A member of the RNA family "ZMP/ZTP riboswitch aptamer (pfl RNA motif)", 82 nucleotides long. It scores 61 bits against the family's covariance model. The literature on the family includes a 2015 paper in Chem Biol by Trausch et al., "Metal Ion-Mediated Nucleobase Recognition by the ZTP Riboswitch".
RNA sequence: UCAGGCGUGCGCAACUGGCGAUUUGAGGUGGAAGACCACCGGGGAGCGCGCGAAACAUGCGCCGUUCGCCUGGGCCUCGGAU
Numbered sequence: 001u002c003a004g005g006c007g008u009g010c011g012c013a014a015c016u017g018g019c020g021a022u023u024u025g026a027g028g029u030g031g032a033a034g035a036c037c038a039c040c041g042g043g044g045a046g047c048g049c050g051c052g053a054a055a056c057a058u059g060c061g062c063c064g065u066u067c068g069c070c071u072g073g074g075c076c077u078c079g080g081a082u
Stems, first nucleotide, its partner, number of pairs: 006052007015043002017070005028039004059077001061075003